Source information
This 222-nucleotide RNA from Medicago truncatula belongs to the Rfam family "MIR2619 microRNA precursor family". Lineage of the source: Eukaryota > Streptophyta > Tracheophyta > Magnoliopsida > Medicago.

RNA sequence: AAACCGCCCCUUAAGUAUUGCCCCUUUUGCAGUUUUGGCCCCCACAGACUAAUUUUGACCAAGUCAAUGCACACGUGGAUGCCACAUGUGUAAUUUUUUUAUUUUUUUAAUUAAAAAACUAAAAAAAAAAAAAACACGUGUGGCGUCCACGUUAGCUUUGACUUGGUCAAAAUUGGCUUGGGGGUCAAAAUUGCAAAAUGGACAAUACUUAGGGGGCGGUUU
Numbered sequence: 001a002a003a004c005c006g007c008c009c010c011u012u013a014a015g016u017a018u019u020g021c022c023c024c025u026u027u028u029g030c031a032g033u034u035u036u037g038g039c040c041c042c043c044a045c046a047g048a049c050u051a052a053u054u055u056u057g058a059c060c061a062a063g064u065c066a067a068u069g070c071a072c073a074c075g076u077g078g079a080u081g082c083c084a085c086a087u088g089u090g091u092a093a094u095u096u097u098u099u100u101a102u103u104u105u106u107u108u109a110a111u112u113a114a115a116a117a118a119c120u121a122a123a124a125a126a127a128a129a130a131a132a133a134a135c136a137c138g139u140g141u142g143g144c145g146u147c148c149a150c151g152u153u154a155g156c157u158u159u160g161a162c163u164u165g166g167u168c169a170a171a172a173u174u175g176g177c178u179u180g181g182g183g184g185u186c187a188a189a190a191u192u193g194c195a196a197a198a199u200g201g202a203c204a205a206u207a208c209u210u211a212g213g214g215g216g217c218g219g220u221u222u
Stems, first nucleotide, its partner, number of pairs: 001222002004219005012211009022201002025198020073152002076149016
Dot-bracket structure: ((.(((((...(((((((((.((.((((((((((((((((((((............................((.((((((((((((((((..........................................)))))))))))))))).))..........................)))))))))))))))))))).)).)))))))))...))))).))
It scores 124 bits against the family's covariance model.